[Rfam]
Rfam assigns this 78-nucleotide RNA from Clupea harengus to the family "mir-23 microRNA precursor family". NCBI's taxonomy places the organism under Eukaryota, Bilateria, Chordata, Clupeinae, Clupea. Rfam links the family to the GO terms RISC complex and gene silencing by miRNA. A reference for the family is Chen et al. (2005), "The developmental miRNA profiles of zebrafish as determined by small RNA cloning", Genes Dev.

RNA sequence: GGCCAAUGGGAUUCCUGGCAUGGUGAUUUUUAAUGGACUGUAAGGACUGAAUCACAUUGCCAGGGAUUUCCAGUGGCU
Numbered sequence: 001g002g003c004c005a006a007u008g009g010g011a012u013u014c015c016u017g018g019c020a021u022g023g024u025g026a027u028u029u030u031u032a033a034u035g036g037a038c039u040g041u042a043a044g045g046a047c048u049g050a051a052u053c054a055c056a057u058u059g060c061c062a063g064g065g066a067u068u069u070c071c072a073g074u075g076g077c078u
Stems, first nucleotide, its partner, number of pairs: 001078001003076003009071002011067010023055007